[Rfam]
RNA sequence: UGUCCAUGCCCUCCUUGGGCGUUUCCUCCCUAGACUUCGACCGUGUCGUGCAAACGAUGCGGUCUUUUUUUCGGCGCG
Numbered sequence: 001u002g003u004c005c006a007u008g009c010c011c012u013c014c015u016u017g018g019g020c021g022u023u024u025c026c027u028c029c030c031u032a033g034a035c036u037u038c039g040a041c042c043g044u045g046u047c048g049u050g051c052a053a054a055c056g057a058u059g060c061g062g063u064c065u066u067u068u069u070u071u072c073g074g075c076g077c078g
Stems, first nucleotide, its partner, number of pairs: 008020004040063009
RNA: Makes More Granules Regulator RNA (mmgR)
Organism: Mesorhizobium wenxiniae